[Rfam]
RNA sequence: UGACCUCAAAUCAGGUAGGACUACGCGCUGAACUUAAGCAUAUCAAUAAGCGCAGGAAAAGAAAAUACCAUGAUUCCCCCAGUAACGGCGAGUGAAGCGGGAAAAGCUCAAAUUUGAAAUCUGGCAACAUUCUUUGUUGUCCGAGUGUAAUUUCAAGAAGCUGCUUUGAGUGUACACGGUUUACCUAAGUUCCUUGGAACAGGACGUCAUAGAGGGUGAGAACCCGUCUUUGGUAAGCUGGGCGUAUGCCGGAUAAAGCGCUUUCGAAGAGUCGAGUGUUUGGGAAUGCAGCUCUAAAUGGGUGGUAAAUUCAUCUAAAGCUAAAUAUUGGCGAGAGACCGAUAGCGAACAAGUAGAGUGAUCGAAAGAUGAAAAGAACUUGAAAAGAGAGUUAAUAGUACGUGAAAUUGCUGAAAGGACGAAG
Numbered sequence: 001u002g003a004c005c006u007c008a009a010a011u012c013a014g015g016u017a018g019g020a021c022u023a024c025g026c027g028c029u030g031a032a033c034u035u036a037a038g039c040a041u042a043u044c045a046a047u048a049a050g051c052g053c054a055g056g057a058a059a060a061g062a063a064a065a066u067a068c069c070a071u072g073a074u075u076c077c078c079c080c081a082g083u084a085a086c087g088g089c090g091a092g093u094g095a096a097g098c099g100g101g102a103a104a105a106g107c108u109c110a111a112a113u114u115u116g117a118a119a120u121c122u123g124g125c126a127a128c129a130u131u132c133u134u135u136g137u138u139g140u141c142c143g144a145g146u147g148u149a150a151u152u153u154c155a156a157g158a159a160g161c162u163g164c165u166u167u168g169a170g171u172g173u174a175c176a177c178g179g180u181u182u183a184c185c186u187a188a189g190u191u192c193c194u195u196g197g198a199a200c201a202g203g204a205c206g207u208c209a210u211a212g213a214g215g216g217u218g219a220g221a222a223c224c225c226g227u228c229u230u231u232g233g234u235a236a237g238c239u240g241g242g243c244g245u246a247u248g249c250c251g252g253a254u255a256a257a258g259c260g261c262u263u264u265c266g267a268a269g270a271g272u273c274g275a276g277u278g279u280u281u282g283g284g285a286a287u288g289c290a291g292c293u294c295u296a297a298a299u300g301g302g303u304g305g306u307a308a309a310u311u312c313a314u315c316u317a318a319a320g321c322u323a324a325a326u327a328u329u330g331g332c333g334a335g336a337g338a339c340c341g342a343u344a345g346c347g348a349a350c351a352a353g354u355a356g357a358g359u360g361a362u363c364g365a366a367a368g369a370u371g372a373a374a375a376g377a378a379c380u381u382g383a384a385a386a387g388a389g390a391g392u393u394a395a396u397a398g399u400a401c402g403u404g405a406a407a408u409u410g411c412u413g414a415a416a417g418g419a420c421g422a423a424g
Stems, first nucleotide, its partner, number of pairs: 024055001025053005035042002065071002075102004085093002105322004112152001114150003118146001120144002123141005157265002159262003164258004170249006179238007189205001191204004208212001215225002274294004278289002300316005356363002379389002381386001
Shown here is a 424-nucleotide part of an RNA from Schizosaccharomyces octosporus, a member of the family "Eukaryotic large subunit ribosomal RNA". Rfam links the family to the GO terms ribosome and structural constituent of ribosome. The base pairs follow the family's consensus structure, which is taken from published work.